[Rfam]
RNA sequence: CCGACCGUGAGGUGGGAUCUGGAGGAAGCUGGAGGCAAAACCCCGACCUGAGGACCACGAACCCAAGGUGAGGCUGUUGUAUUCGGGCGAGUCUGCCAUACAAGACAAAGCCCUAUACAGCCAAGGGAUACAGCAGUAAAUUGGGCAGGUACAUGGGGCGAAAGUUAUCGUU
Numbered sequence: 001c002c003g004a005c006c007g008u009g010a011g012g013u014g015g016g017a018u019c020u021g022g023a024g025g026a027a028g029c030u031g032g033a034g035g036c037a038a039a040a041c042c043c044c045g046a047c048c049u050g051a052g053g054a055c056c057a058c059g060a061a062c063c064c065a066a067g068g069u070g071a072g073g074c075u076g077u078u079g080u081a082u083u084c085g086g087g088c089g090a091g092u093c094u095g096c097c098a099u100a101c102a103a104g105a106c107a108a109a110g111c112c113c114u115a116u117a118c119a120g121c122c123a124a125g126g127g128a129u130a131c132a133g134c135a136g137u138a139a140a141u142u143g144g145g146c147a148g149g150u151a152c153a154u155g156g157g158g159c160g161a162a163a164g165u166u167a168u169c170g171u172u
Base pairs, nucleotide, nucleotide: 001016002015004013005012006011028172030170031169032168035165036164041158042157043156044155045154046150047149048148049147050146062145063144064143065142066141073137074136075135077133078132079131080130081129082128083127085113086112087111088110091106092105093104094103

Group II catalytic intron D1-D4-3: a 172-nucleotide RNA sequence from Paenalicyclobacillus ferrooxydans. From the family's description: Group II introns are found in rRNA, tRNA and mRNA of organelles in fungi, plants and protists, and also in mRNA in bacteria. A search with the family's covariance model found it, with a score of 132 bits.